Rfam assigns this 179-nucleotide RNA sequence from Pelagovum pacificum to the family "Ruegeria cis52 sRNA". Taxonomically the source falls in Pelagovum (Bacteria, Pseudomonadota, Alphaproteobacteria, Rhodobacterales). Rfam classes the family as a small RNA.
RNA sequence: UGCGCAGCGCGUGCUUCACCACGAUGUUGCUGAAGCUGACACCCUUGAGCCGCGCGGUGCGGAUAUAUUGCGCCGUCAUCACUUCGGUCAUGCUCGCCCGUGUCAUGCGCGCGAUGUAGCCCAUGCCGUAGAGCGCGAUGGUCAGGACCGGCAGGGUGAAGUUCACGAAGGUCGCGUCC
Numbered sequence: 001u002g003c004g005c006a007g008c009g010c011g012u013g014c015u016u017c018a019c020c021a022c023g024a025u026g027u028u029g030c031u032g033a034a035g036c037u038g039a040c041a042c043c044c045u046u047g048a049g050c051c052g053c054g055c056g057g058u059g060c061g062g063a064u065a066u067a068u069u070g071c072g073c074c075g076u077c078a079u080c081a082c083u084u085c086g087g088u089c090a091u092g093c094u095c096g097c098c099c100g101u102g103u104c105a106u107g108c109g110c111g112c113g114a115u116g117u118a119g120c121c122c123a124u125g126c127c128g129u130a131g132a133g134c135g136c137g138a139u140g141g142u143c144a145g146g147a148c149c150g151g152c153a154g155g156g157u158g159a160a161g162u163u164c165a166c167g168a169a170g171g172u173c174g175c176g177u178c179c
Stems, first nucleotide, its partner, number of pairs: 005140002008137005014131002016128001020125002028123002040111001042109001046105003051100002054097001055075008082096001145179003149174004155164002